Notes: This 117-nucleotide RNA sequence from Minwuia thermotolerans belongs to the Rfam family "ALIL pseudoknot". It scores 120 bits against the family's covariance model. On this family, see Mazauric et al., J Biol Chem 2008: "Apical loop-internal loop RNA pseudoknots: a new type of stimulator of -1 translational frameshifting in bacteria". The family's consensus secondary structure is taken from published work.
RNA sequence: CGCCUAUUUUGCCCAGGCGGAGCUCGACCGCCCACUGAAGCGAUGAUCGCGUUUAUCGACGAUCACCGGGAGGCUCACGGGGUCGAGCCGAUCUGCAAGGUGCUGCCGAUCGCCCCG
Numbered sequence: 001c002g003c004c005u006a007u008u009u010u011g012c013c014c015a016g017g018c019g020g021a022g023c024u025c026g027a028c029c030g031c032c033c034a035c036u037g038a039a040g041c042g043a044u045g046a047u048c049g050c051g052u053u054u055a056u057c058g059a060c061g062a063u064c065a066c067c068g069g070g071a072g073g074c075u076c077a078c079g080g081g082g083u084c085g086a087g088c089c090g091a092u093c094u095g096c097a098a099g100g101u102g103c104u105g106c107c108g109a110u111c112g113c114c115c116c117g
Stems, first nucleotide, its partner, number of pairs: 016032005078117005089112002092109002095106003